[Rfam]
RNA sequence: UCGGGGAGCCGGGCAGCCGCGUCGGGGAAACCCGUACGAGGAAAGUCCGGGCUCCACGAAACAAGGAUGGCGGGUAACGCCCGCCCGGCGAGGAAACGGCCGUCCGUCAGGGCGGCACGUCCGAAGCCGAGGGACAGUGCCACAGAGAGCAAUCCGCCGAUGGGUUUCACGUCGAAAGACGGGGGACCACAGGCAAGGGUGAAAGGGUGCGGUAAGAGCGCACCGGGGAACCGGCAACGGCGACCGCAUGGCAAACCCCAUCCGGAGCAAGACCGAAUAGGGGCGGCGCGCCCGGCCGAAAGGUGCAGGGCAGGGGUGUUUCGCCCCGUGACCGCCCGGGUUGGUUGCUUGAGCCUUGCGGCAACGCAAGGCCUAGAUGAAUGGCUGCCCUUGCGGGGCUGGUGUUUUACAUACCGCCCGCAUGACAGAACCCGGCUUACAGGCUCCCCGGCGUA
Number, nucleotide and partner (000 for none) at each position: 001u451002c450003g449004g448005g447006g446007a445008g444009c443010c442011g440012g389013g388014c387015a386016g385017c384018c383019g000020c038021g037022u036023c000024g000025g033026g032027g031028a000029a000030a000031c027032c026033c025034g000035u000036a022037c021038g020039a000040g000041g000042a000043a438044a437045g436046u000047c435048c434049g433050g432051g431052c267053u266054c265055c264056a000057c000058g000059a000060a000061a321062c000063a319064a000065g263066g262067a261068u260069g259070g084071c083072g082073g081074g080075u000076a000077a000078c000079g000080c074081c073082c072083g071084c070085c131086c129087g128088g127089c126090g000091a000092g000093g000094a000095a000096a000097c000098g000099g000100c000101c000102g000103u000104c000105c000106g000107u000108c000109a000110g000111g000112g000113c000114g000115g000116c000117a000118c000119g000120u000121c000122c000123g000124a000125a000126g089127c088128c087129g086130a000131g085132g258133g257134a000135c000136a000137g256138u255139g252140c251141c250142a000143c000144a000145g000146a000147g000148a000149g000150c000151a000152a000153u000154c198155c197156g194157c193158c192159g000160a000161u189162g188163g187164g000165u000166u000167u000168c000169a000170c000171g000172u000173c000174g000175a000176a000177a000178g000179a000180c000181g000182g000183g000184g000185g000186a000187c163188c162189a161190c000191a000192g158193g157194c156195a000196a000197g155198g154199g000200u000201g000202a000203a000204a000205g000206g224207g223208u222209g221210c220211g219212g000213u000214a000215a000216g000217a000218g000219c211220g210221c209222a208223c207224c206225g247226g245227g244228g000229a000230a000231c240232c239233g238234g000235c000236a000237a000238c233239g232240g231241c000242g000243a000244c227245c226246g000247c225248a000249u000250g141251g140252c139253a000254a000255a138256c137257c133258c132259c069260a068261u067262c066263c065264g055265g054266a053267g052268c000269a000270a000271g346272a345273c344274c343275g000276a000277a000278u000279a000280g000281g337282g336283g335284c334285g333286g332287c000288g000289c000290g000291c000292c000293c000294g000295g000296c000297c000298g000299a000300a000301a000302g000303g000304u000305g000306c000307a000308g000309g000310g000311c000312a000313g327314g326315g325316g324317u323318g000319u063320u000321u061322c000323g317324c316325c315326c314327c313328g000329u000330g000331a000332c286333c285334g284335c283336c282337c281338g000339g000340g000341u000342u000343g274344g273345u272346u271347g000348c000349u000350u000351g000352a000353g372354c371355c370356u369357u368358g367359c366360g365361g000362c000363a000364a000365c360366g359367c358368a357369a356370g355371g354372c353373c000374u000375a000376g000377a000378u000379g000380a000381a000382u000383g018384g017385c016386u015387g014388c013389c012390c000391u000392u000393g000394c000395g000396g000397g000398g000399c000400u000401g000402g000403u000404g000405u000406u000407u000408u000409a000410c000411a000412u000413a000414c000415c000416g000417c000418c000419c000420g000421c000422a000423u000424g000425a000426c000427a000428g000429a000430a000431c051432c050433c049434g048435g047436c045437u044438u043439a000440c011441a000442g010443g009444c008445u007446c006447c005448c004449c003450g002451g001452c000453g000454u000455a000
RNA: Bacterial RNase P class A